[Rfam]
RNA sequence: UAUUUGUCCACGCUGGGUAUGCGUCUUAGUCAUGGCGAUAUAUAAAUUACAUGACUAGAUCCAUACUCAGCUUGGCAAAUAU
Numbered sequence: 001u002a003u004u005u006g007u008c009c010a011c012g013c014u015g016g017g018u019a020u021g022c023g024u025c026u027u028a029g030u031c032a033u034g035g036c037g038a039u040a041u042a043u044a045a046a047u048u049a050c051a052u053g054a055c056u057a058g059a060u061c062c063a064u065a066c067u068c069a070g071c072u073u074g075g076c077a078a079a080u081a082u
Base pairs, nucleotide, nucleotide: 005077006076008075009074010073013070014069015068016067017066018065019064020063021062023061028056029055030054031053032052033051034050